This 81-nucleotide sequence from Octodon degus belongs to the Rfam family "mir-3473 microRNA precursor family". A search with the family's covariance model found it, with a score of 78 bits.
[Rfam]
RNA sequence: ACCACUGAGCCAUCUCACCAGCCCCAAAAUUUUAUUUCUUUAAAAAUAAAAUUUGUGGGGCUGGGGAGAUGGCUCAGUGGA
Numbered sequence: 001a002c003c004a005c006u007g008a009g010c011c012a013u014c015u016c017a018c019c020a021g022c023c024c025c026a027a028a029a030u031u032u033u034a035u036u037u038c039u040u041u042a043a044a045a046a047u048a049a050a051a052u053u054u055g056u057g058g059g060g061c062u063g064g065g066g067a068g069a070u071g072g073c074u075c076a077g078u079g080g081a
Stems, first nucleotide, its partner, number of pairs: 002080015018064007

The family's consensus secondary structure was predicted with RNAalifold.
The source organism's lineage runs through Eukaryota, Eumetazoa, Vertebrata, Boreoeutheria and Octodon.
The family has 5 seed sequences and 1,094 matches in Rfam 15.1.